[Rfam]
RNA sequence: AACAGUAACCUAUGUAAGUCACUCUGGAUAAGAGUGUCUGCUAAAUGACAACAG
Number, nucleotide and partner (000 for none) at each position: 001a000002a000003c000004a000005g000006u000007a000008a000009c000010c000011u000012a000013u043014g041015u040016a039017a000018g000019u000020c036021a035022c034023u033024c032025u031026g000027g000028a000029u000030a000031a025032g024033a023034g022035u021036g020037u000038c000039u016040g015041c014042u000043a013044a000045a000046u000047g000048a000049c000050a000051a000052c000053a000054g000
RNA: UnaL2 LINE 3' element